The family of this 219-nucleotide RNA sequence from Prochlorothrix hollandica is "sucA-II RNA". Lineage of the source: Bacteria > Cyanobacteriota > Cyanophyceae > Prochlorotrichales > Prochlorothrix hollandica. The match comes from Rfam's covariance-model search (174 bits).
RNA sequence: CUGCGAGUCCGGCUCAGGUCGGCCUCGCAGUAAAGCCAGAGCCGCAGCUCACAAAGCCGCGGCUCAUACUCGAAAAACAUGACGACCAGCAGGGGCAUCCGGGCUGGUACCCGGACUAUCUGCGGGAACCCAAGUGGCUUUAUCCGAGUCGCAGCAUCAUGACUUUGAUCAGGACCAUGCGGUAUUCGCGCCGGUGGUGUCCCCUACCGAGGGUGACCA
Numbered sequence: 001c002u003g004c005g006a007g008u009c010c011g012g013c014u015c016a017g018g019u020c021g022g023c024c025u026c027g028c029a030g031u032a033a034a035g036c037c038a039g040a041g042c043c044g045c046a047g048c049u050c051a052c053a054a055a056g057c058c059g060c061g062g063c064u065c066a067u068a069c070u071c072g073a074a075a076a077a078c079a080u081g082a083c084g085a086c087c088a089g090c091a092g093g094g095g096c097a098u099c100c101g102g103g104c105u106g107g108u109a110c111c112c113g114g115a116c117u118a119u120c121u122g123c124g125g126g127a128a129c130c131c132a133a134g135u136g137g138c139u140u141u142a143u144c145c146g147a148g149u150c151g152c153a154g155c156a157u158c159a160u161g162a163c164u165u166u167g168a169u170c171a172g173g174a175c176c177a178u179g180c181g182g183u184a185u186u187c188g189c190g191c192c193g194g195u196g197g198u199g200u201c202c203c204c205u206a207c208c209g210a211g212g213g214u215g216a217c218c219a
Stems, first nucleotide, its partner, number of pairs: 001030007009022005039065006047057003091205005096199002098115006116197005122191003126187002128183003134178004138173003142169002147164005